[Rfam]
RNA sequence: AUAUCGAAUCGGCAAACUACUCGAAAGGGUAGGACGCAAAACUAAAGGGGCUAAAUCUAUUUUCAAAAUAGACAUGCCAGCCAGUUGCCCUU
Dot-bracket structure: ...........((...((((((....))))))...))..((((...(((((....(((((((...)))))))...)))..))))))......
RNA: c-di-GMP-I riboswitch aptamer